[Rfam]
RNA sequence: AACUUCGGGUAAUUGCGGUCGGCAAUGGUCGGCUGAGGAAAGUCCAUGCCCGCACAAGCUGCGAUGCUUGUAGUGUUCGCGCCCAGCCCAAUAAGCUGAGGUACCUGAAAAGGUAACGGCGGAAAAAUGCGCUAACGGUUUUACCCAUGCGCUAGUAUUCCUGAAAAGUGCCACAGUGACGAAGCAAUGUGAGAAAUUGCAUUGAUGGAACGCGGUAAACCCCACGAGCGAGUAACCCAAACUUUAUGGUAGGGGCGUCCUGAGUCUGAAAAUGAACGAUGCCCAGGAGCUCGAAAGAGUAGAUAGAUGAUUACCGAAACGUAUUCUUUACCUGAGGAAUGCGUGGAACAAAACAUGGCUUAUAGAA
Numbered sequence: 001a002a003c004u005u006c007g008g009g010u011a012a013u014u015g016c017g018g019u020c021g022g023c024a025a026u027g028g029u030c031g032g033c034u035g036a037g038g039a040a041a042g043u044c045c046a047u048g049c050c051c052g053c054a055c056a057a058g059c060u061g062c063g064a065u066g067c068u069u070g071u072a073g074u075g076u077u078c079g080c081g082c083c084c085a086g087c088c089c090a091a092u093a094a095g096c097u098g099a100g101g102u103a104c105c106u107g108a109a110a111a112g113g114u115a116a117c118g119g120c121g122g123a124a125a126a127a128u129g130c131g132c133u134a135a136c137g138g139u140u141u142u143a144c145c146c147a148u149g150c151g152c153u154a155g156u157a158u159u160c161c162u163g164a165a166a167a168g169u170g171c172c173a174c175a176g177u178g179a180c181g182a183a184g185c186a187a188u189g190u191g192a193g194a195a196a197u198u199g200c201a202u203u204g205a206u207g208g209a210a211c212g213c214g215g216u217a218a219a220c221c222c223c224a225c226g227a228g229c230g231a232g233u234a235a236c237c238c239a240a241a242c243u244u245u246a247u248g249g250u251a252g253g254g255g256c257g258u259c260c261u262g263a264g265u266c267u268g269a270a271a272a273u274g275a276a277c278g279a280u281g282c283c284c285a286g287g288a289g290c291u292c293g294a295a296a297g298a299g300u301a302g303a304u305a306g307a308u309g310a311u312u313a314c315c316g317a318a319a320c321g322u323a324u325u326c327u328u329u330a331c332c333u334g335a336g337g338a339a340u341g342c343g344u345g346g347a348a349c350a351a352a353a354c355a356u357g358g359c360u361u362a363u364a365g366a367a
Base pairs, nucleotide, nucleotide: 004367005366006365007363008315009314010313011312012311013310014309016035017034018033019032020031021030040361041360042359044358045357046356047355048354049232051230052229053228054071055070056069057068058067059066077227078226079225081223082100084098085097086096087095101117102115103114104113105112106111118222119221121161122160123159124158129152130151131150132149137145138144168220169219170216171215172214185204186203187202188201189200190199191198192197236254237253238252258288259287260286261285262284264282289300290299291298292297319344320343321342322341323340324339325338326337327336328335
RNA: Bacterial RNase P class B
Organism: Lactobacillus selangorensis